The family of this 85-nucleotide RNA sequence is "c-di-GMP-II-GAG riboswitch aptamer". For this family Rfam cites "Bioinformatic analysis of riboswitch structures uncovers variant classes with altered ligand specificity" (Weinberg et al., Proc Natl Acad Sci U S A, 2017). Clan: c-di-GMP_II riboswitch clan. The base pairs follow the family's consensus structure, which is taken from published work.
RNA sequence: CGGCGUGCGGGAGGCUCUGACGCGCGGUCCACAUCCCGGCCGCCGGGACCGCGCCGAGCCACUGGCGGGACCGGCCCGCGUGGUG
Numbered sequence: 001c002g003g004c005g006u007g008c009g010g011g012a013g014g015c016u017c018u019g020a021c022g023c024g025c026g027g028u029c030c031a032c033a034u035c036c037c038g039g040c041c042g043c044c045g046g047g048a049c050c051g052c053g054c055c056g057a058g059c060c061a062c063u064g065g066c067g068g069g070a071c072c073g074g075c076c077c078g079c080g081u082g083g084u085g
Base pairs, nucleotide, nucleotide: 001085002084004082005081006080007079008078009077010076011075013060014059015058022054023053024052025051026050027049028048029047038072039071040068041067042066043065044064
Its family is annotated with regulation of gene expression and cyclic-di-GMP binding in the Gene Ontology.